[Rfam]
RNA sequence: GUGGUCCGUCUCGUGGACGCCCCUGACCAUAGGCCCCGGGUCCCGGCUACCCUGGCGGCGUGCGCCCUCGUCCAAAGCCCGCGCGGGCUCUGGACAGCAAGCGCAAAGCCGACAGCCGUCGCACUUCAGGGAGCCCAUACAUG
Dot-bracket structure: ............................................................((((...(...............................).))))..((.(((....))))).....................

This 143-nucleotide RNA from Streptomyces sp. F001 belongs to the Rfam family "Streptomyces-metH RNA". The family's RNA type in Rfam is small RNA. Taxonomically the source falls in Streptomyces (Bacteria, Bacillati, Kitasatosporales, Streptomycetaceae). The base pairs follow the family's consensus structure, which is taken from published work. It scores 91 bits against the family's covariance model.